[Rfam]
RNA sequence: GGAGGCGGCGACGCCCCCCCCGACUUGAGACUGGCGACCAUGCCAGUCUGCCGUCUCCGCACCCCUUUUCUCGAUGAUGCACACUCAGGCGGACCUUCGGGUCCGCCC
Dot-bracket structure: ((((((((((.((.......))......(((((((......))))))))))))))))).............................((((((((....)))))))).
Source information:
This 108-nucleotide RNA sequence from Phenylobacterium hankyongense belongs to the Rfam family "Cauldobacter sRNA CC3552". Pairs were carried over by alignment from the consensus structure, which was predicted with RNAalifold.